SAM riboswitch aptamer (S box leader): a 126-nucleotide RNA from Desulfosporosinus cupriresistens.
RNA sequence: CUCUUAUCCGGAGUGGUGGAGGGACUAGCCCAAUGAAACCCGGCAACCCGCUUUGCACGCUAUGUUUUGGCUUGCACAAGCAUGGUGCUAAUUCUUGCAGAAGAGAAUUCUUCUGGCAGAUAAGAG
Numbered sequence: 001c002u003c004u005u006a007u008c009c010g011g012a013g014u015g016g017u018g019g020a021g022g023g024a025c026u027a028g029c030c031c032a033a034u035g036a037a038a039c040c041c042g043g044c045a046a047c048c049c050g051c052u053u054u055g056c057a058c059g060c061u062a063u064g065u066u067u068u069g070g071c072u073u074g075c076a077c078a079a080g081c082a083u084g085g086u087g088c089u090a091a092u093u094c095u096u097g098c099a100g101a102a103g104a105g106a107a108u109u110c111u112u113c114u115g116g117c118a119g120a121u122a123a124g125a126g
Stems, first nucleotide, its partner, number of pairs: 001126008013041001015040003021031003025097001027095002042089004047085002050081004093118001098115006